[Rfam]
RNA sequence: GUUUAUGGGAAUGUUGUUUGGCUCGAGGAAAAGUAGGUGAUAUAUGUUAAUUAUUAGUCUUUGAAGCUUUCUGGGAUUUUUUUGGUCAUAUAUAUAUCCCUAUGUAAUCCCGGACCAGGCUUCAUUCCCGUCAAC
Number, nucleotide and partner (000 for none) at each position: 001g135002u134003u133004u000005a131006u130007g129008g128009g127010a126011a125012u124013g123014u000015u000016g120017u119018u118019u117020g116021g115022c000023u000024c112025g111026a000027g000028g000029a000030a000031a000032a000033g000034u000035a000036g000037g000038u000039g000040a000041u000042a000043u000044a000045u000046g000047u000048u000049a000050a000051u000052u000053a000054u000055u000056a000057g000058u000059c000060u000061u000062u000063g000064a000065a000066g000067c000068u000069u000070u000071c000072u000073g000074g000075g000076a000077u000078u000079u000080u000081u000082u000083u000084g000085g000086u000087c000088a000089u000090a000091u000092a000093u000094a000095u000096a000097u000098c000099c000100c000101u000102a000103u000104g000105u000106a000107a000108u000109c000110c000111c025112g024113g000114a000115c021116c020117a019118g018119g017120c016121u000122u000123c013124a012125u011126u010127c009128c008129c007130g006131u005132c000133a003134a002135c001